A member of the RNA family "Coronavirus frameshifting stimulation element" from Deltacoronavirus nycticoracis, 78 nucleotides long.
The family's RNA type in Rfam is frameshift element.
The organism belongs to Deltacoronavirus nycticoracis, within Viruses.
It is one of the family's seed sequences.
Rfam's curators write: This family represents a conserved stem-loop found in Coronaviruses which can promote ribosomal frameshifting.
RNA sequence: GAGUAAAGGGUUCUAGUGAUGCCCGCCUAGAACCCUGCACUAGCGACAACCGACCCGAUGUCGUCGUUAGGGCGUUUA
Numbered sequence: 001g002a003g004u005a006a007a008g009g010g011u012u013c014u015a016g017u018g019a020u021g022c023c024c025g026c027c028u029a030g031a032a033c034c035c036u037g038c039a040c041u042a043g044c045g046a047c048a049a050c051c052g053a054c055c056c057g058a059u060g061u062c063g064u065c066g067u068u069a070g071g072g073c074g075u076u077u078a
Stems, first nucleotide, its partner, number of pairs: 008035009020074005037064002041060002